[Rfam]
RNA sequence: UGCACCUAAAAGCGUUUUCUUGUCAGCCUGAUAAAUGCUCUUGAAAAUCGUAGAUGUGUGCAAAAUCAAUCCUCACAAUAGCAAGUGAUUUUAGUUCCCUUAACUCUAAUCCGUUUACAUUGUGAACAGUC
Numbered sequence: 001u002g003c004a005c006c007u008a009a010a011a012g013c014g015u016u017u018u019c020u021u022g023u024c025a026g027c028c029u030g031a032u033a034a035a036u037g038c039u040c041u042u043g044a045a046a047a048u049c050g051u052a053g054a055u056g057u058g059u060g061c062a063a064a065a066u067c068a069a070u071c072c073u074c075a076c077a078a079u080a081g082c083a084a085g086u087g088a089u090u091u092u093a094g095u096u097c098c099c100u101u102a103a104c105u106c107u108a109a110u111c112c113g114u115u116u117a118c119a120u121u122g123u124g125a126a127c128a129g130u131c
Stems, first nucleotide, its partner, number of pairs: 001062005006056001012051003015047005022038002025036001073125007083116005088110003093105004

This 131-nucleotide RNA sequence from Drosophila melanogaster belongs to the Rfam family "Small nucleolar RNA psi28S-3316". Rfam classes the family as an H/ACA-box small nucleolar RNA.